[Rfam]
Nucleotides: 135
Stems, first nucleotide, its partner, number of pairs: 003060006010051002018045005024039001026035002076128006082120001087116008
Number, partner (000 for none) and nucleotide at each position: 001000c002000u003060g004059g005058a006057g007056g008055a009000c010051u011050a012000a013000g014000a015000a016000a017000g018045u019044a020043a021042a022041g023000u024039c025000a026035a027034a028000a029000a030000a031000g032000u033000g034027u035026u036000g037000u038000g039024g040000c041022u042021u043020u044019u045018a046000c047000u048000g049000a050011u051010a052000c053000u054000a055008u056007c057006c058005u059004c060003c061000u062000a063000u064000a065000a066000a067000a068000a069000a070000c071000a072000g073000a074000a075000u076128g077127g078126u079125a080124g081123a082120g083000g084000a085000a086000c087116a088115g089114g090113c091112u092111u093110g094109g095000u096000u097000g098000c099000a100000a101000g102000a103000u104000g105000u106000a107000c108000c109094c110093c111092g112091g113090g114089c115088c116087u117000a118000c119000u120082u121000a122000a123081u124080c125079u126078a127077c128076c129000a130000a131000c132000a133000u134000g135000a
Small Cajal body specific RNA 15: a 135-nucleotide RNA from Eleutherodactylus coqui. A reference for the family is Darzacq et al. (2002), "Cajal body-specific small nuclear RNAs: a novel class of 2'-O-methylation and pseudouridylation guide RNAs", EMBO J. The base pairs follow the family's consensus structure, which was predicted with RNAfold. About the family: scaRNAs are a specific class of small nuclear RNAs which localise to the Cajal bodies and guide the modification of RNA polymerase II transcribed spliceosomal RNAs U1, U2, U4, U5 and U12. ACA45 belongs to the H/ACA box class of guide RNAs as it has the predicted hairpin-hinge-hairpin-tail structure, the conserved H/ACA-box motifs and is found associated with GAR1. ACA45 is predicted to guide the pseudouridylation of residue U37 of the U2 spliceosomal snRNA. Gene Ontology terms of the family: nucleolus, Cajal body and RNA processing. A search with the family's covariance model found it, with a score of 72 bits. It is annotated as a small Cajal body RNA.